[Rfam]
RNA sequence: CGCCGAUGCCCUCCUUGGGCGUUUCCUCCCUAGACUUGGGCCGCUUGCGGAAACGCAAGCGGCCUCUUUAGUCUUAAGG
Numbered sequence: 001c002g003c004c005g006a007u008g009c010c011c012u013c014c015u016u017g018g019g020c021g022u023u024u025c026c027u028c029c030c031u032a033g034a035c036u037u038g039g040g041c042c043g044c045u046u047g048c049g050g051a052a053a054c055g056c057a058a059g060c061g062g063c064c065u066c067u068u069u070a071g072u073c074u075u076a077a078g079g
Base pairs, nucleotide, nucleotide: 008020009019010018011017039064040063041062042061043060044059045058046057047056
Makes More Granules Regulator RNA (mmgR): a 79-nucleotide sequence from Methylocella silvestris.
By type it is a small RNA.
For this family Rfam cites "Evidence for a second class of S-adenosylmethionine riboswitches and other regulatory RNA motifs in alpha-proteobacteria" (Corbino et al., Genome Biol, 2005).
It scores 62 bits against the family's covariance model.
The organism belongs to Methylocella silvestris, within Bacteria.